[Rfam]
RNA sequence: GUGACAGAAGAGAGUGAGCACACAUGGUAUUUUCUUGCAUGCUUUGAGAUCCUGCUUGAAGCUAUGCGUGCUCACUCUCUAUCUGUCAC
Numbered sequence: 001g002u003g004a005c006a007g008a009a010g011a012g013a014g015u016g017a018g019c020a021c022a023c024a025u026g027g028u029a030u031u032u033u034c035u036u037g038c039a040u041g042c043u044u045u046g047a048g049a050u051c052c053u054g055c056u057u058g059a060a061g062c063u064a065u066g067c068g069u070g071c072u073c074a075c076u077c078u079c080u081a082u083c084u085g086u087c088a089c
Stems, first nucleotide, its partner, number of pairs: 001089008010079012023066003
Dot-bracket structure: ((((((((.((((((((((((.(((......................................))).))))))))))))..))))))))
RNA: mir-156 microRNA precursor family